Rfam assigns this 46-nucleotide sequence from Electrophorus electricus to the family "Histone 3' UTR stem-loop".
The mRNAs of metazoan histone genes lack a poly-A tail. 3' end processing occurs at a site between a highly conserved stem-loop (modelled by this family) and a purine rich region around 20 nts downstream (the histone downstream element, or HDE). The stem-loop is bound by a 31 kDa stem-loop binding protein (SLBP - also termed the histone hairpin binding protein, or HBP). Together with U7 snRNA binding of the HDE, SLBP binding nucleate s the formation of the processing complex.
Rfam 15.1 lists 44,596 matches to the family in 976 species.
[Rfam]
RNA sequence: CCAAAGGCUCUUUUAAGAGCCACCCACGUUUCCACCAAAGACAUUU
Numbered sequence: 001c002c003a004a005a006g007g008c009u010c011u012u013u014u015a016a017g018a019g020c021c022a023c024c025c026a027c028g029u030u031u032c033c034a035c036c037a038a039a040g041a042c043a044u045u046u
Stems, first nucleotide, its partner, number of pairs: 006021006

The match comes from Rfam's covariance-model search (40 bits). It is annotated as a cis-regulatory element.